[Rfam]
RNA: Small nucleolar RNA snR191
Organism: Aspergillus clavatus
RNA sequence: UGCCAUCGCUAAGUCAAGUCUCCUUCCUGCGGCUUUUGUGUCGUGCUAUUCUCUAUGGAAGUUUGUCUGUUACAGCUUUGGCAGAUUGACGCUUGCCCGCGCCGACCUUCAUUCUGAAGUUAGGCUGAUCGGUUUUCGUUUUGGAAGCCGGUCGCAAAGGGCCAAGCAGUGUUCUGUUUGUGAGUUGAGUGCUGCUUCUGCCACUUGGCAGCUUCGUGGCAGUCCUCUUAGUAACAUUUCACACAUCA
Numbered sequence: 001u002g003c004c005a006u007c008g009c010u011a012a013g014u015c016a017a018g019u020c021u022c023c024u025u026c027c028u029g030c031g032g033c034u035u036u037u038g039u040g041u042c043g044u045g046c047u048a049u050u051c052u053c054u055a056u057g058g059a060a061g062u063u064u065g066u067c068u069g070u071u072a073c074a075g076c077u078u079u080g081g082c083a084g085a086u087u088g089a090c091g092c093u094u095g096c097c098c099g100c101g102c103c104g105a106c107c108u109u110c111a112u113u114c115u116g117a118a119g120u121u122a123g124g125c126u127g128a129u130c131g132g133u134u135u136u137c138g139u140u141u142u143g144g145a146a147g148c149c150g151g152u153c154g155c156a157a158a159g160g161g162c163c164a165a166g167c168a169g170u171g172u173u174c175u176g177u178u179u180g181u182g183a184g185u186u187g188a189g190u191g192c193u194g195c196u197u198c199u200g201c202c203a204c205u206u207g208g209c210a211g212c213u214u215c216g217u218g219g220c221a222g223u224c225c226u227c228u229u230a231g232u233a234a235c236a237u238u239u240c241a242c243a244c245a246u247c248a
Stems, first nucleotide, its partner, number of pairs: 003081003017068002020065001023061005029044005092166002095162004101125003105121001107119004127153012169242003175236003187227003193221004198211005